The record is a 111-nucleotide RNA sequence from Parafrankia colletiae, which matches "Actinobacteria sRNA Ms_IGR-7" in Rfam. NCBI's taxonomy places the organism under Bacteria, Bacillati, Frankiales, Frankiaceae, Parafrankia. The match comes from Rfam's covariance-model search (45 bits). A reference for the family is Li et al. (2013), "Identification of small RNAs in Mycobacterium smegmatis using heterologous Hfq", RNA. The family has 14 seed sequences and 463 matches in Rfam 15.1.
RNA sequence: CGAAGGUGCUCCUUGGUUCGGUUGGAUUCAGGCCCUCAGCAAGCCCGAUCCUCCCAGCUCAGGAGCACUUUCCUCUUUCCGGCACCCCAACAGACGAUCACCCCGGUGAAA
Numbered sequence: 001c002g003a004a005g006g007u008g009c010u011c012c013u014u015g016g017u018u019c020g021g022u023u024g025g026a027u028u029c030a031g032g033c034c035c036u037c038a039g040c041a042a043g044c045c046c047g048a049u050c051c052u053c054c055c056a057g058c059u060c061a062g063g064a065g066c067a068c069u070u071u072c073c074u075c076u077u078u079c080c081g082g083c084a085c086c087c088c089a090a091c092a093g094a095c096g097a098u099c100a101c102c103c104c105g106g107u108g109a110a111a
Stems, first nucleotide, its partner, number of pairs: 002072011014061003018057001020055002024051004032044002098109004